[Rfam]
This 109-nucleotide RNA sequence from Tumebacillus flagellatus belongs to the Rfam family "pan motif".
Pairs were carried over by alignment from the consensus structure, which is taken from published work.
Taxonomically the source falls in Tumebacillus (Bacteria, Bacillati, Bacillota, Caryophanales).
It is annotated as a cis-regulatory element.
RNA sequence: GAGACGGUAUCCAAAGCUGAACUGUACUCCCGACGUGAUGGAAACUGUACGACCCUUGAAUUCCAACUUUACACAUCUGCUCUGAGCCGAUUCGGACCGAGACAGGGAA
Numbered sequence: 001g002a003g004a005c006g007g008u009a010u011c012c013a014a015a016g017c018u019g020a021a022c023u024g025u026a027c028u029c030c031c032g033a034c035g036u037g038a039u040g041g042a043a044a045c046u047g048u049a050c051g052a053c054c055c056u057u058g059a060a061u062u063c064c065a066a067c068u069u070u071a072c073a074c075a076u077c078u079g080c081u082c083u084g085a086g087c088c089g090a091u092u093c094g095g096a097c098c099g100a101g102a103c104a105g106g107g108a109a
Stems, first nucleotide, its partner, number of pairs: 001029003004025005010020002077105003080101003084097001087095002